RNA sequence: UACUACCAAACCCUAUCUCCACCUCCACGUGGUGACCGCUGGGAGCUUUUUCUUAACGAAGCUGCAGACGGAGAAGG
Number, nucleotide and partner (000 for none) at each position: 001u000002a000003c000004u000005a000006c000007c000008a000009a000010a000011c000012c077013c076014u075015a000016u073017c000018u071019c070020c000021a033022c032023c031024u000025c000026c000027a000028c000029g000030u000031g023032g022033u021034g000035a000036c000037c000038g000039c000040u000041g000042g000043g000044a063045g062046c061047u060048u059049u058050u000051u056052c000053u000054u000055a000056a051057c000058g049059a048060a047061g046062c045063u044064g000065c000066a000067g000068a000069c000070g019071g018072a000073g016074a000075a014076g013077g012